[Rfam]
RNA sequence: CACUUCUAAAACAACAAAAGCCCUACCUCUCUUUUGUCCUUGCGGCUCCGAUGACCGCGCCAGUGUGAAUCAGAAUUUCGUCUUUACA
Numbered sequence: 001c002a003c004u005u006c007u008a009a010a011a012c013a014a015c016a017a018a019a020g021c022c023c024u025a026c027c028u029c030u031c032u033u034u035u036g037u038c039c040u041u042g043c044g045g046c047u048c049c050g051a052u053g054a055c056c057g058c059g060c061c062a063g064u065g066u067g068a069a070u071c072a073g074a075a076u077u078u079c080g081u082c083u084u085u086a087c088a
Stems, first nucleotide, its partner, number of pairs: 034068003039063002041059005047053001